U11 spliceosomal RNA: a 136-nucleotide sequence from Cnephaeus nilssonii. The literature on the family includes a 1988 paper in Proc Natl Acad Sci U S A by Montzka and Steitz, "Additional low-abundance human small nuclear ribonucleoproteins: U11, U12, etc". Its Rfam clan is "U1 clan".
RNA sequence: GGAAAGGGCCUCUGUCGGAGAGUGGCGCACACAGAGCAGCCUGAUUGCUCUACGUGCGGGAUCCACAUCAAGAGAUGUUGGGAGCAUAAUAUUUUUGGUACUUGGGCAGCUGGUGAUCGUUGGUCCUGGCGCCCGA
Numbered sequence: 001g002g003a004a005a006g007g008g009c010c011u012c013u014g015u016c017g018g019a020g021a022g023u024g025g026c027g028c029a030c031a032c033a034g035a036g037c038a039g040c041c042u043g044a045u046u047g048c049u050c051u052a053c054g055u056g057c058g059g060g061a062u063c064c065a066c067a068u069c070a071a072g073a074g075a076u077g078u079u080g081g082g083a084g085c086a087u088a089a090u091a092u093u094u095u096u097g098g099u100a101c102u103u104g105g106g107c108a109g110c111u112g113g114u115g116a117u118c119g120u121u122g123g124u125c126c127u128g129g130c131g132c133c134c135g136a
Stems, first nucleotide, its partner, number of pairs: 008085002011082002013027005028056003033051007057080003061076003104134004109130005115125004